[Rfam]
RNA sequence: UUCGCCGAGGGGCGCUGCGACCGUGACAUGUGCGGAUCCUUCCGCAAAAGCCUGCACAUCCCUGUGCAGACUUUCCACAUAGUCCGGCCAGGCUCGGUGGAAUGAACCUGCAACGGCGCCCGGAUACC
Numbered sequence: 001u002u003c004g005c006c007g008a009g010g011g012g013c014g015c016u017g018c019g020a021c022c023g024u025g026a027c028a029u030g031u032g033c034g035g036a037u038c039c040u041u042c043c044g045c046a047a048a049a050g051c052c053u054g055c056a057c058a059u060c061c062c063u064g065u066g067c068a069g070a071c072u073u074u075c076c077a078c079a080u081a082g083u084c085c086g087g088c089c090a091g092g093c094u095c096g097g098u099g100g101a102a103u104g105a106a107c108c109u110g111c112a113a114c115g116g117c118g119c120c121c122g123g124a125u126a127c128c
Stems, first nucleotide, its partner, number of pairs: 002100007021087003025083001

A member of the RNA family "SAH (S-adenosyl-L-homocysteine) riboswitch aptamer" from Pseudoxanthomonas sp. Root65, 128 nucleotides long. A search with the family's covariance model found it, with a score of 52 bits. The base pairs follow the family's consensus structure, which is taken from published work. Gene Ontology terms of the family: S-adenosylhomocysteine metabolic process and regulation of gene expression.